RNA sequence: UUUGCAGCCGCCUCUAAUUCGCUUGGUGCAGGUCGGGGCUAAUAUUUUCAAAUCUGCAUACACUUUGUCAUCUUCAAACCCCACUUGUGUGAUUACAGUGGGUACGUUGUUGCUGUAUGAAUAAAUAUUUUUGUGGAUACAAUUAUUUUGAAUGAAUAGAUGUUGACUGUGGGGAAAAUUUAGUCCUGCCUUGCAUCAAUUGAAUUGGAGACUGAUGUGAAU
Numbered sequence: 001u002u003u004g005c006a007g008c009c010g011c012c013u014c015u016a017a018u019u020c021g022c023u024u025g026g027u028g029c030a031g032g033u034c035g036g037g038g039c040u041a042a043u044a045u046u047u048u049c050a051a052a053u054c055u056g057c058a059u060a061c062a063c064u065u066u067g068u069c070a071u072c073u074u075c076a077a078a079c080c081c082c083a084c085u086u087g088u089g090u091g092a093u094u095a096c097a098g099u100g101g102g103u104a105c106g107u108u109g110u111u112g113c114u115g116u117a118u119g120a121a122u123a124a125a126u127a128u129u130u131u132u133g134u135g136g137a138u139a140c141a142a143u144u145a146u147u148u149u150g151a152a153u154g155a156a157u158a159g160a161u162g163u164u165g166a167c168u169g170u171g172g173g174g175a176a177a178a179u180u181u182a183g184u185c186c187u188g189c190c191u192u193g194c195a196u197c198a199a200u201u202g203a204a205u206u207g208g209a210g211a212c213u214g215a216u217g218u219g220a221a222u
Base pairs, nucleotide, nucleotide: 013209014208017205018204019203020202023199024198025197026196027195028194029193030192031191032190034188035187036186037185038184039183040182041181042180